[Rfam]
RNA sequence: AGCUUUGCGCAGUGGCAGUAUCGUAGCCAAUGAGGUUUAUCCGAGGCGCGAUUAUUGCUAAUUAAAUAUUCUUCAACAGCACUAUUUUUUUUUUUUUUUGAGAAAGCGAGGGAGAGUGUGUGUGUGCACA
Numbered sequence: 001a002g003c004u005u006u007g008c009g010c011a012g013u014g015g016c017a018g019u020a021u022c023g024u025a026g027c028c029a030a031u032g033a034g035g036u037u038u039a040u041c042c043g044a045g046g047c048g049c050g051a052u053u054a055u056u057g058c059u060a061a062u063u064a065a066a067u068a069u070u071c072u073u074c075a076a077c078a079g080c081a082c083u084a085u086u087u088u089u090u091u092u093u094u095u096u097u098u099u100g101a102g103a104a105a106g107c108g109a110g111g112g113a114g115a116g117u118g119u120g121u122g123u124g125u126g127c128a129c130a
Stems, first nucleotide, its partner, number of pairs: 020052005026047003034042002083114001085112001087110003091106006
The family of this 130-nucleotide sequence from Neogale vison is "U4 spliceosomal RNA". Its family is annotated with U4 snRNP and spliceosomal tri-snRNP complex assembly in the Gene Ontology. A search with the family's covariance model found it, with a score of 77 bits. About the family: U4 small nuclear RNA (U4 snRNA) is a component of the major U2-dependent spliceosome.